Record summary
The record is a 202-nucleotide sequence from Stutzerimonas stutzeri, which matches "Pseudomonas sRNA P27" in Rfam. The family's RNA type in Rfam is small RNA.
RNA sequence: CGGGUUUUUACUCCUGGAUGUUACCGGUUCGCCCAGCCGAAGCCGGACGGGUUUUGGUGUCUGAUUCGGUACGAAUCGGGAGCACCUCUGCGUAGGCCUGAAGAAGCGAACUCCAACGGUUUAAGGCUUGCGCCGCCUACGGUCUUGGAUAGCCCCCGCCAGGCAGGGACCCCAAUUUUGCGCCGCCCCGGCAGCCGGAGCG
Numbered sequence: 001c002g003g004g005u006u007u008u009u010a011c012u013c014c015u016g017g018a019u020g021u022u023a024c025c026g027g028u029u030c031g032c033c034c035a036g037c038c039g040a041a042g043c044c045g046g047a048c049g050g051g052u053u054u055u056g057g058u059g060u061c062u063g064a065u066u067c068g069g070u071a072c073g074a075a076u077c078g079g080g081a082g083c084a085c086c087u088c089u090g091c092g093u094a095g096g097c098c099u100g101a102a103g104a105a106g107c108g109a110a111c112u113c114c115a116a117c118g119g120u121u122u123a124a125g126g127c128u129u130g131c132g133c134c135g136c137c138u139a140c141g142g143u144c145u146u147g148g149a150u151a152g153c154c155c156c157c158g159c160c161a162g163g164c165a166g167g168g169a170c171c172c173c174a175a176u177u178u179u180g181c182g183c184c185g186c187c188c189c190g191g192c193a194g195c196c197g198g199a200g201c202g
Stems, first nucleotide, its partner, number of pairs: 002172006013163004025051001030049002033046002036043002056086005061079007090159003095154003119150010185201002188198003